[Rfam]
This 76-nucleotide RNA from Amphibalanus amphitrite belongs to the Rfam family "mir-67 microRNA precursor family". The match comes from Rfam's covariance-model search (58 bits). The family's consensus secondary structure was predicted with RNAalifold.
RNA sequence: UCAUCAGUUGACCCCCUCGACUUGGCUGUGAUGUGAACUGAACCAUCACAACCUCCUUGAGUGGGUGAGGUGAGCG
Numbered sequence: 001u002c003a004u005c006a007g008u009u010g011a012c013c014c015c016c017u018c019g020a021c022u023u024g025g026c027u028g029u030g031a032u033g034u035g036a037a038c039u040g041a042a043c044c045a046u047c048a049c050a051a052c053c054u055c056c057u058u059g060a061g062u063g064g065g066u067g068a069g070g071u072g073a074g075c076g
Stems, first nucleotide, its partner, number of pairs: 008068003012065003016061005024053002027050007
A reference for the family is Cao et al. (2008), "Identification of conserved microRNAs in Bombyx mori (silkworm) and regulation of fibroin L chain production by microRNAs in heterologous system", Insect Biochem Mol Biol.